The record is a 229-nucleotide sequence from Thalassobaculum litoreum, which matches "permuted transfer-messenger RNA" in Rfam.
It is annotated as a non-coding RNA gene.
A search with the family's covariance model found it, with a score of 137 bits.
RNA sequence: GGCGAUAAACGGCGCUCGGAAUAAGCGUUGCGGACCCGGGGGCAGUACCCGGCGCCUCCACCAAAAUCUCCGACCGUUCUGAUGAAGAAUGGCCGGAACGUUUCAUGGGGGCGAAACAGGAUCGACGCGCGUAGUAAAGGACCGCUUUUUGCUCGGGAUGGUACCGCCGUUAUCGGGCCGUAUGAUAGUUGCGAACGACAACUAUGCUGAGGCGCGCCUGGCUGCGUAA
Number, nucleotide and partner (000 for none) at each position: 001g153002g152003c151004g150005a149006u000007a000008a000009a000010c000011g000012g000013c000014g143015c000016u141017c140018g000019g000020a000021a000022u000023a000024a000025g000026c131027g130028u129029u000030g128031c127032g126033g000034a000035c000036c052037c051038g050039g049040g048041g000042g000043c000044a000045g000046u000047a000048c040049c039050c038051g037052g036053c113054g112055c111056c110057u109058c108059c107060a000061c000062c000063a000064a000065a000066a000067u000068c000069u000070c000071c000072g000073a000074c000075c000076g000077u000078u000079c000080u000081g000082a000083u000084g000085a000086a000087g000088a000089a000090u000091g000092g000093c000094c000095g000096g000097a000098a000099c000100g000101u000102u000103u000104c000105a000106u000107g059108g058109g057110g056111g055112c054113g053114a000115a000116a000117c000118a000119g000120g000121a000122u000123c000124g000125a000126c032127g031128c030129g028130c027131g026132u000133a000134g000135u000136a000137a000138a000139g000140g017141a016142c000143c014144g000145c000146u000147u000148u000149u005150u004151g003152c002153u001154c169155g168156g167157g000158a000159u000160g000161g000162u000163a000164c000165c000166g000167c156168c155169g154170u000171u000172a000173u000174c000175g000176g000177g000178c000179c000180g000181u000182a000183u000184g000185a000186u000187a000188g000189u000190u000191g000192c000193g000194a000195a000196c000197g000198a000199c000200a000201a000202c000203u000204a000205u000206g000207c000208u000209g000210a000211g000212g000213c000214g000215c000216g000217c000218c000219u000220g000221g000222c000223u000224g000225c000226g000227u000228a000229a000